The family of this 95-nucleotide RNA sequence from Aminicella lysinilytica is "THF (Tetrahydrofolate) riboswitch aptamer".
NCBI's taxonomy places the organism under Bacteria, Bacillati, Clostridia, Peptostreptococcales, Aminicella.
A search with the family's covariance model found it, with a score of 77 bits.
Rfam describes the family as follows. Tetrahydrofolate (THF) riboswitch was first reported for Ames et al. as an RNA motif in 5' untranslated (5'-UTR)regions of folate transport and biosynthesis genes in Firmicutes genomes.
The base pairs follow the family's consensus structure, which is taken from published work.
[Rfam]
RNA sequence: AGUAGAGUAAAUAUUGUGCGUCAAGUGUCAUAAGAUGGGAUGUUGCUUAUGAACGAAGGGUAUAACAACCGCGGUGCAAUGUUGCGUCCACUACU
Numbered sequence: 001a002g003u004a005g006a007g008u009a010a011a012u013a014u015u016g017u018g019c020g021u022c023a024a025g026u027g028u029c030a031u032a033a034g035a036u037g038g039g040a041u042g043u044u045g046c047u048u049a050u051g052a053a054c055g056a057a058g059g060g061u062a063u064a065a066c067a068a069c070c071g072c073g074g075u076g077c078a079a080u081g082u083u084g085c086g087u088c089c090a091c092u093a094c095u
Stems, first nucleotide, its partner, number of pairs: 001095005010083009019073003025054002028052007038089005058070002061067001